[Rfam]
RNA sequence: GCUAAUUGCUACGAUAUCAUUAUAAUGCUCCACCUUAGAUCUAAUCGUGAUGGUAAUUUCAUCGUAAAAAGGUGACAAAUCGGUGACAUCGGGUUAUUUUUG
Numbered sequence: 001g002c003u004a005a006u007u008g009c010u011a012c013g014a015u016a017u018c019a020u021u022a023u024a025a026u027g028c029u030c031c032a033c034c035u036u037a038g039a040u041c042u043a044a045u046c047g048u049g050a051u052g053g054u055a056a057u058u059u060c061a062u063c064g065u066a067a068a069a070a071g072g073u074g075a076c077a078a079a080u081c082g083g084u085g086a087c088a089u090c091g092g093g094u095u096a097u098u099u100u101u102g
Stems, first nucleotide, its partner, number of pairs: 008028002014023003032094004041083002044080001045075004
The record is a 102-nucleotide RNA sequence from Yersinia ruckeri, which matches "Yersinia sRNA 190" in Rfam. The match comes from Rfam's covariance-model search (89 bits). On this family, see Righetti et al., Proc Natl Acad Sci U S A 2016: "Temperature-responsive in vitro RNA structurome of Yersinia pseudotuberculosis". The sRNA was identified by and is confirmed to have a stable secondary structure by using genome-wide structure probing at different temperatures. The function is unknown.